[Rfam]
RNA: c-di-GMP-I-GGC riboswitch aptamer
RNA sequence: CCUGAAAAAGGCAAACUUUUUGAAAGAAAAGGACGCAAAACCACGGGCCUAAGUAUUUGUUUAUAAGGCAGCCGGGUCACCGGAA
Number, nucleotide and partner (000 for none) at each position: 001c000002c000003u082004g081005a000006a000007a000008a000009a000010g000011g036012c035013a000014a000015a000016c031017u030018u029019u028020u027021u026022g000023a000024a000025a000026g021027a020028a019029a018030a017031g016032g000033a000034c071035g012036c011037a000038a000039a000040a077041c076042c075043a000044c074045g073046g072047g069048c068049c067050u000051a000052a000053g000054u000055a000056u000057u000058u000059g000060u000061u000062u000063a000064u000065a000066a000067g049068g048069c047070a000071g034072c046073c045074g044075g042076g041077u040078c000079a000080c000081c004082g003083g000084a000085a000